Record summary:
The record is a 104-nucleotide sequence from Dorea sp. AF36-15AT, which matches "THF (Tetrahydrofolate) riboswitch aptamer" in Rfam. A search with the family's covariance model found it, with a score of 86 bits. Tetrahydrofolate (THF) riboswitch was first reported for Ames et al. as an RNA motif in 5' untranslated (5'-UTR)regions of folate transport and biosynthesis genes in Firmicutes genomes. Gene Ontology term of the family: tetrahydrofolate metabolic process.
RNA sequence: CGCAGAGUAGGAAUAUGCGCGUCAAGUGCCAGCCGGACGGGGAGUUGUCGGUAGGACGAAAAGUGAAAGAAUCACUUGCGGUGCACAUUCCGCAUCCCGCUGCU
Number, nucleotide and partner (000 for none) at each position: 001c000002g103003c102004a101005g100006a000007g000008u000009a000010g091011g090012a089013a088014u087015a000016u085017g084018c083019g082020c080021g079022u078023c000024a000025a000026g057027u056028g000029c055030c054031a000032g052033c051034c050035g049036g048037a000038c000039g000040g097041g096042g095043a000044g093045u000046u000047g000048u036049c035050g034051g033052u032053a000054g030055g029056a027057c026058g000059a000060a000061a077062a076063g075064u074065g073066a072067a000068a000069g000070a000071a000072u066073c065074a064075c063076u062077u061078g022079c021080g020081g000082u019083g018084c017085a016086c000087a014088u013089u012090c011091c010092g000093c044094a000095u042096c041097c040098c000099g000100c005101u004102g003103c002104u000